[Rfam]
RNA: Plant small nucleolar RNA U3
RNA sequence: AUGACCGUACUUGAACAGGAUCUGUUCUAUAGGUCAUACACCUCUCUAUGUUCUCUAACAUAGACAAGUCUCCCAACCCAGACGAAGAAAGGUAGCCUCUGCGCCUGAGCGCAACGUAUGGUCGCAGUGGCCGUGCCGCUGGCACGGACGCGCGACUCUGGAUGAACGUCCCGCCGAGCCACAUUCCGCCGGCAGGGAUGGCGCUAGAGGCAUUCAGAUGGGUU
Numbered sequence: 001a002u003g004a005c006c007g008u009a010c011u012u013g014a015a016c017a018g019g020a021u022c023u024g025u026u027c028u029a030u031a032g033g034u035c036a037u038a039c040a041c042c043u044c045u046c047u048a049u050g051u052u053c054u055c056u057a058a059c060a061u062a063g064a065c066a067a068g069u070c071u072c073c074c075a076a077c078c079c080a081g082a083c084g085a086a087g088a089a090a091g092g093u094a095g096c097c098u099c100u101g102c103g104c105c106u107g108a109g110c111g112c113a114a115c116g117u118a119u120g121g122u123c124g125c126a127g128u129g130g131c132c133g134u135g136c137c138g139c140u141g142g143c144a145c146g147g148a149c150g151c152g153c154g155a156c157u158c159u160g161g162a163u164g165a166a167c168g169u170c171c172c173g174c175c176g177a178g179c180c181a182c183a184u185u186c187c188g189c190c191g192g193c194a195g196g197g198a199u200g201g202c203g204c205u206a207g208a209g210g211c212a213u214u215c216a217g218a219u220g221g222g223u224u
Base pairs, nucleotide, nucleotide: 001037002036003034005033006032013027014026015025016024017023018022043066045064047062048061049060050059051058052057076223077222078221079220080219095211096210097209098208099207100206101204102203103202104201105200109169110168111167118159120157121156122155123154124153125152128150129149131147132146133145134144135143136142171196172195173193174192175191176190178189179188